[Rfam]
RNA: SucA RNA motif
RNA sequence: GAUCGAUUCGUGGACUGGUGAAGCCAGAAAGCGAAUGGUUAUAACCACAGUUUUUAUUCGGGAAACCCGAUGAAAGGUGAGCA
Numbered sequence: 001g002a003u004c005g006a007u008u009c010g011u012g013g014a015c016u017g018g019u020g021a022a023g024c025c026a027g028a029a030a031g032c033g034a035a036u037g038g039u040u041a042u043a044a045c046c047a048c049a050g051u052u053u054u055u056a057u058u059c060g061g062g063a064a065a066c067c068c069g070a071u072g073a074a075a076g077g078u079g080a081g082c083a
Stems, first nucleotide, its partner, number of pairs: 004081001007035005016026004037046003050078003058070005